This 35-nucleotide sequence from Chrysochloris asiatica belongs to the Rfam family "Iron response element I". The organism belongs to Chrysochloris, within Eukaryota. It scores 39 bits against the family's covariance model. Pairs were carried over by alignment from the consensus structure, which is taken from published work.
[Rfam]
RNA sequence: UGGUGUCCCAUUUCAACAGUGCUUGAAUGGAACCA
Numbered sequence: 001u002g003g004u005g006u007c008c009c010a011u012u013u014c015a016a017c018a019g020u021g022c023u024u025g026a027a028u029g030g031a032a033c034c035a
Stems, first nucleotide, its partner, number of pairs: 001035004006031003010028001012027005017021001